[Rfam]
RNA sequence: GGGCUGGCUCUCACCCAGCGGUUCCUUCGAGUCAAGCCUUCACUUGCCAACCACUCUUGCUAGCAAGGGUAGUUCCAGACCCAUGGGUGCCCUCCAGCCCUUUU
Numbered sequence: 001g002g003g004c005u006g007g008c009u010c011u012c013a014c015c016c017a018g019c020g021g022u023u024c025c026u027u028c029g030a031g032u033c034a035a036g037c038c039u040u041c042a043c044u045u046g047c048c049a050a051c052c053a054c055u056c057u058u059g060c061u062a063g064c065a066a067g068g069g070u071a072g073u074u075c076c077a078g079a080c081c082c083a084u085g086g087g088u089g090c091c092c093u094c095c096a097g098c099c100c101u102u103u104u
Stems, first nucleotide, its partner, number of pairs: 002099006013088004018084001020082002026078002029075004
Vault RNA: a 104-nucleotide RNA sequence from Molossus molossus.
The family's RNA type in Rfam is non-coding RNA gene.
Rfam describes the family as follows. This family of RNAs are found as part of the enigmatic vault ribonucleoprotein complex.
NCBI's taxonomy places the organism under Eukaryota, Sarcopterygii, Tetrapoda, Eutheria, Molossus.